[Rfam]
RNA sequence: CUUCACCGACCCCAGCCACAAUGGACGCUCACUCUCGCGCCCCUGCCCGUACGUGGCGAGCAGCGCCUGCGCCUC
Numbered sequence: 001c002u003u004c005a006c007c008g009a010c011c012c013c014a015g016c017c018a019c020a021a022u023g024g025a026c027g028c029u030c031a032c033u034c035u036c037g038c039g040c041c042c043c044u045g046c047c048c049g050u051a052c053g054u055g056g057c058g059a060g061c062a063g064c065g066c067c068u069g070c071g072c073c074u075c
Stems, first nucleotide, its partner, number of pairs: 016024002032071001034069001038065002043060002047056003
RNA: ASpks TB sRNA